[Rfam]
RNA sequence: AAAAACGCCCAUCAAUGGCGUGGUACCCCAGCCGGGCGCGACCUUACCAUAUUCGGAAUUC
Numbered sequence: 001a002a003a004a005a006c007g008c009c010c011a012u013c014a015a016u017g018g019c020g021u022g023g024u025a026c027c028c029c030a031g032c033c034g035g036g037c038g039c040g041a042c043c044u045u046a047c048c049a050u051a052u053u054c055g056g057a058a059u060u061c
Base pairs, nucleotide, nucleotide: 017045018044020042021041023039024038026036027035